[Rfam]
RNA sequence: AUCUAUCUUCGGGGUAAGGUGAAAUUCCUAACCGGCGGUUAAAGUCCGCGAGCGCAAGCUGAAUCAGUGAAAUUCUGAUACCGACAGUUACAGUCUGGAUGGGAGAAGACAGAA
Numbered sequence: 001a002u003c004u005a006u007c008u009u010c011g012g013g014g015u016a017a018g019g020u021g022a023a024a025u026u027c028c029u030a031a032c033c034g035g036c037g038g039u040u041a042a043a044g045u046c047c048g049c050g051a052g053c054g055c056a057a058g059c060u061g062a063a064u065c066a067g068u069g070a071a072a073u074u075c076u077g078a079u080a081c082c083g084a085c086a087g088u089u090a091c092a093g094u095c096u097g098g099a100u101g102g103g104a105g106a107a108g109a110c111a112g113a114a
Stems, first nucleotide, its partner, number of pairs: 003112002006109005017029003031094002033083002035049004044081002052059002063079005085097003
The record is a 114-nucleotide sequence from Carnobacteriaceae bacterium zg-C25, which matches "FMN riboswitch aptamer (RFN element)" in Rfam. The RFN element is a highly conserved domain that is found frequently in the 5'-untranslated regions of prokaryotic mRNAs that encode for flavin mononucleotide (FMN) biosynthesis and transport proteins. A search with the family's covariance model found it, with a score of 113 bits.